[Rfam]
RNA sequence: CCACGGGCUCCCGCCCGUGGCUACAACCUGUCGUCCCAUUCGGGACU
Numbered sequence: 001c002c003a004c005g006g007g008c009u010c011c012c013g014c015c016c017g018u019g020g021c022u023a024c025a026a027c028c029u030g031u032c033g034u035c036c037c038a039u040u041c042g043g044g045a046c047u
Base pairs, nucleotide, nucleotide: 001020002019003018004017005016006015007014008013033046034045035044036043037042
Rfam assigns this 47-nucleotide RNA sequence from Allorhodopirellula solitaria to the family "Acido-Lenti-1 RNA". The family's consensus secondary structure is taken from published work. Lineage of the source: Bacteria > Planctomycetota > Planctomycetia > Pirellulaceae > Allorhodopirellula. By type it is a small RNA. The match comes from Rfam's covariance-model search (39 bits). Rfam 15.1 lists 2,607 matches to the family in 171 species.